Rfam assigns this 253-nucleotide part of an RNA from Kwoniella shandongensis to the family "Eukaryotic large subunit ribosomal RNA". The source organism's lineage runs through Eukaryota, Basidiomycota, Tremellomycetes, Cryptococcaceae and Kwoniella. It scores 3394 bits against the family's covariance model. The base pairs follow the family's consensus structure, which is taken from published work.

RNA sequence: CGAUUGAAGUCAGUCGUGUCCAUUGGGUUCAGCCGGUUCUGCCGGUCUACUCCCUUUGGACGGGUCAACAUCAGUUCUGAUCGGCGGAUAAGGGCGGGAGGAAAGUAGCACCCCCCGGGGUGUGUUAUAGCCUCCUGUCGCAUACGCUGGUUGGGACUGAGGAACGCAGCUCGCCUUUAUGGCCGGGGUUCGCCCACGUAACGAGCUUAGGAUGUUGACAUAAUGGCUUUAAACGACCCGUCUUGAAACACGG
Numbered sequence: 001c002g003a004u005u006g007a008a009g010u011c012a013g014u015c016g017u018g019u020c021c022a023u024u025g026g027g028u029u030c031a032g033c034c035g036g037u038u039c040u041g042c043c044g045g046u047c048u049a050c051u052c053c054c055u056u057u058g059g060a061c062g063g064g065u066c067a068a069c070a071u072c073a074g075u076u077c078u079g080a081u082c083g084g085c086g087g088a089u090a091a092g093g094g095c096g097g098g099a100g101g102a103a104a105g106u107a108g109c110a111c112c113c114c115c116c117g118g119g120g121u122g123u124g125u126u127a128u129a130g131c132c133u134c135c136u137g138u139c140g141c142a143u144a145c146g147c148u149g150g151u152u153g154g155g156a157c158u159g160a161g162g163a164a165c166g167c168a169g170c171u172c173g174c175c176u177u178u179a180u181g182g183c184c185g186g187g188g189u190u191c192g193c194c195c196a197c198g199u200a201a202c203g204a205g206c207u208u209a210g211g212a213u214g215u216u217g218a219c220a221u222a223a224u225g226g227c228u229u230u231a232a233a234c235g236a237c238c239c240g241u242c243u244u245g246a247a248a249c250a251c252g253g
Stems, first nucleotide, its partner, number of pairs: 001235002004232009017062006066217007238253004